Rfam assigns this 86-nucleotide RNA from Deinococcus ficus to the family "c-di-GMP-II-GCG riboswitch aptamer". The match comes from Rfam's covariance-model search (67 bits). Taxonomically the source falls in Deinococcus (Bacteria, Thermotogati, Deinococcales, Deinococcaceae). Rfam links the family to the GO terms regulation of gene expression and cyclic-di-GMP binding. The family's consensus secondary structure is taken from published work.
RNA sequence: UUUCACUUGGGAAGCGAUGAUUCCUGCCUCAGUACACGGUCACCUCAGGGCAGGGGGAGCCAGUGGUGAGCCCGGCCCCAUAGGAG
Dot-bracket structure: ((((..(.(((..((......((((((((........[[[[[[[...))))))))...))....]]]]]..]]..))).)..))))
Numbered sequence: 001u002u003u004c005a006c007u008u009g010g011g012a013a014g015c016g017a018u019g020a021u022u023c024c025u026g027c028c029u030c031a032g033u034a035c036a037c038g039g040u041c042a043c044c045u046c047a048g049g050g051c052a053g054g055g056g057g058a059g060c061c062a063g064u065g066g067u068g069a070g071c072c073c074g075g076c077c078c079c080a081u082a083g084g085a086g
Stems, first nucleotide, its partner, number of pairs: 001086004007080001009078003014060002022055008038073002040069005